[Rfam]
RNA sequence: UGUCCUCGCGGGGCGCUCAGGUCCGCCGCAUCUCCUGGGUCCGUGGGGCACGGCCGGUCGGAACGUGGCAGUGGAGUGGCCUCCUCUGUUAAGCCAUGAAAUUUCCGGCCGGCCACUUU
Numbered sequence: 001u002g003u004c005c006u007c008g009c010g011g012g013g014c015g016c017u018c019a020g021g022u023c024c025g026c027c028g029c030a031u032c033u034c035c036u037g038g039g040u041c042c043g044u045g046g047g048g049c050a051c052g053g054c055c056g057g058u059c060g061g062a063a064c065g066u067g068g069c070a071g072u073g074g075a076g077u078g079g080c081c082u083c084c085u086c087u088g089u090u091a092a093g094c095c096a097u098g099a100a101a102u103u104u105c106c107g108g109c110c111g112g113c114c115a116c117u118u119u
Base pairs, nucleotide, nucleotide: 003050004048005047006046007045008044009043010042016039017038018037019036020035021034052114053113054112055111056110057109058108059107060106061105062104
RNA: EcpR1
Organism: Parvibaculum sedimenti